[Rfam]
RNA: MIR398 microRNA precursor family
Organism: Carnegiea gigantea
RNA sequence: UGAAGUCCUACAGGAGCGACCUGAGACCACAUGAAACGACUCACCUAAUUGGGGGGGGGGGGGGGGGUUGCAGUGCGGACGUGUUCAUGUGUUCUCAGGUCGCCCCUGCCGGCCUUCG
Numbered sequence: 001u002g003a004a005g006u007c008c009u010a011c012a013g014g015a016g017c018g019a020c021c022u023g024a025g026a027c028c029a030c031a032u033g034a035a036a037c038g039a040c041u042c043a044c045c046u047a048a049u050u051g052g053g054g055g056g057g058g059g060g061g062g063g064g065g066g067g068u069u070g071c072a073g074u075g076c077g078g079a080c081g082u083g084u085u086c087a088u089g090u091g092u093u094c095u096c097a098g099g100u101c102g103c104c105c106c107u108g109c110c111g112g113c114c115u116u117c118g
Stems, first nucleotide, its partner, number of pairs: 007112002011108004016103004023096004028091008